[Rfam]
RNA sequence: CCGCCCGUCGCUACUACCGAUUGAAUGGCUUAGUGAGCCCUUCGGAGUGGUCCAUUUGAGCCGGCAACGGCACGUUUGGACUGCAAAGUUGGGCAAACUUGGUCAUUUAGAGGAAGUAAAAGUCGUAACAAGGUUUCCGUAGGUGAACCUGCGGAAGGAUCAUUA
Number, nucleotide and partner (000 for none) at each position: 001c132002c000003g129004c000005c000006c125007g124008u000009c122010g000011c000012u118013a117014c116015u115016a000017c113018c112019g000020a000021u109022u000023g108024a107025a106026u105027g104028g103029c102030u101031u000032a099033g098034u097035g000036a000037g094038c093039c092040c091041u000042u000043c088044g000045g000046a000047g084048u083049g082050g081051u080052c079053c078054a077055u000056u000057u074058g000059a000060g071061c070062c069063g000064g000065c000066a000067a000068c000069g062070g061071c060072a000073c000074g057075u000076u000077u054078g053079g052080a051081c050082u049083g048084c047085a000086a000087a000088g043089u000090u000091g040092g039093g038094c037095a000096a000097a034098c033099u032100u000101g030102g029103u028104c027105a026106u025107u024108u023109a021110g000111a000112g018113g017114a000115a015116g014117u013118a012119a000120a000121a000122g009123u000124c007125g006126u000127a000128a000129c003130a000131a000132g001133g000134u157135u156136u155137c154138c153139g152140u151141a150142g149143g148144u000145g000146a000147a000148c143149c142150u141151g140152c139153g138154g137155a136156a135157g134158g000159a000160u000161c000162a000163u000164u000165a000
The record is a 165-nucleotide part of an RNA from Wallemia hederae, which matches "Eukaryotic small subunit ribosomal RNA" in Rfam. The base pairs follow the family's consensus structure, which is taken from published work. The literature on the family includes a 2001 paper in Science by Yusupov et al., "Crystal structure of the ribosome at 5.5 A resolution". Lineage of the source: Eukaryota > Opisthokonta > Fungi > Wallemiaceae > Wallemia.